The family of this 86-nucleotide RNA from Rattus norvegicus is "mir-130 microRNA precursor family". The base pairs follow the family's consensus structure, which was predicted with PFOLD. Lineage of the source: Eukaryota > Teleostomi > Euteleostomi > Murinae > Rattus.
RNA sequence: UACAAGGCCGAUGCCCUUUUAACAUUGCACUGCUCGGUACACGUGUAGACAGUAGCACAAUGUGAAAAGAGCUCCGGCCAGCAGCA
Numbered sequence: 001u002a003c004a005a006g007g008c009c010g011a012u013g014c015c016c017u018u019u020u021a022a023c024a025u026u027g028c029a030c031u032g033c034u035c036g037g038u039a040c041a042c043g044u045g046u047a048g049a050c051a052g053u054a055g056c057a058c059a060a061u062g063u064g065a066a067a068a069g070a071g072c073u074c075c076g077g078c079c080a081g082c083a084g085c086a
Base pairs, nucleotide, nucleotide: 001086003084006079007078008077009076010075013072014071016069017068018067019066020065023062024061025060026059027058030055031054